[Rfam]
RNA sequence: AAACCGUCGAGAACCUUUUGAAUCACUCUGAUUCAAAAGGUUUUCACAAA
Numbered sequence: 001a002a003a004c005c006g007u008c009g010a011g012a013a014c015c016u017u018u019u020g021a022a023u024c025a026c027u028c029u030g031a032u033u034c035a036a037a038a039g040g041u042u043u044u045c046a047c048a049a050a
Stems, first nucleotide, its partner, number of pairs: 009045017
Plastid-ccsA-ndhD-1 3UTR RNA: a 50-nucleotide RNA from Acer saccharum. Rfam describes the family as follows. Plastid-ccsA-ndhD-1 is a non-coding RNA (ncRNA) recognised in plastids. It scores 61 bits against the family's covariance model. On this family, see Richter et al., Plant Commun 2023: "Retrograde signaling in plants: A critical review focusing on the GUN pathway and beyond". Lineage of the source: Eukaryota > Sapindaceae > Hippocastanoideae > Acereae > Acer. The family's RNA type in Rfam is cis-regulatory element. The family has 488 seed sequences and 1,322 matches in Rfam 15.1.